The family of this 305-nucleotide sequence from Pitta sordida is "Small Cajal body-specific RNA 7". Taxonomically the source falls in Pitta (Eukaryota, Eumetazoa, Gnathostomata, Sarcopterygii). The base pairs follow the family's consensus structure. A reference for the family is Darzacq et al. (2002), "Cajal body-specific small nuclear RNAs: a novel class of 2'-O-methylation and pseudouridylation guide RNAs", EMBO J.
RNA sequence: CGGAAGUGAUGAACUGGAGAUAAUUGGAUGUCUGUGAGUGGAGUGUGUGUGAGAUGGGCUGGGGUUGGGGCUGGGGGUGGGCAGUGGGUGUGUGUGGGGGUGUGGGCAAGGCUUGGCAUGGGGGCACUGAGGGCUCUGCGGGCUCUGCUGACUCCGGAGUGCAUCUGAGGCGUGUUGGGCACCUCUGGGGCCAGGAACCAGCACUGCCAGUGAUUAAAGCCCAAAACAUGCCCACCAGGACAAGCCCAGGCAUCCAAAAUCUCUGCCAGGGCCACUCAUGGCAGUGACCCCGGGAUCUGAUCCCA
Numbered sequence: 001c002g003g004a005a006g007u008g009a010u011g012a013a014c015u016g017g018a019g020a021u022a023a024u025u026g027g028a029u030g031u032c033u034g035u036g037a038g039u040g041g042a043g044u045g046u047g048u049g050u051g052a053g054a055u056g057g058g059c060u061g062g063g064g065u066u067g068g069g070g071c072u073g074g075g076g077g078u079g080g081g082c083a084g085u086g087g088g089u090g091u092g093u094g095u096g097g098g099g100g101u102g103u104g105g106g107c108a109a110g111g112c113u114u115g116g117c118a119u120g121g122g123g124g125c126a127c128u129g130a131g132g133g134c135u136c137u138g139c140g141g142g143c144u145c146u147g148c149u150g151a152c153u154c155c156g157g158a159g160u161g162c163a164u165c166u167g168a169g170g171c172g173u174g175u176u177g178g179g180c181a182c183c184u185c186u187g188g189g190g191c192c193a194g195g196a197a198c199c200a201g202c203a204c205u206g207c208c209a210g211u212g213a214u215u216a217a218a219g220c221c222c223a224a225a226a227c228a229u230g231c232c233c234a235c236c237a238g239g240a241c242a243a244g245c246c247c248a249g250g251c252a253u254c255c256a257a258a259a260u261c262u263c264u265g266c267c268a269g270g271g272c273c274a275c276u277c278a279u280g281g282c283a284g285u286g287a288c289c290c291c292g293g294g295a296u297c298u299g300a301u302c303c304c305a
Stems, first nucleotide, its partner, number of pairs: 002303003173203006182195003185190001